[Rfam]
RNA sequence: CAAAUAAACUGUUAGGUGAGACUCCUACGUGAACACACGCUAUCGCCCAGGAACAUCCAGAGAUGCCAACGGGUUAAACAGGUAUUGUCGAGUUAAGGCACUAUCCAGAUAGCUAGCAUGUGCUUACGUCACGUAGUGUUAAAACUGAACGAUUGGUUAUAACG
Dot-bracket structure: ......(((((([.(((..(((..((((((((......(((((.((((.....((((....)))).....))))......((((..(((......])))..))))...))))).(((....)))....)))))))).)))...)))..))....))))......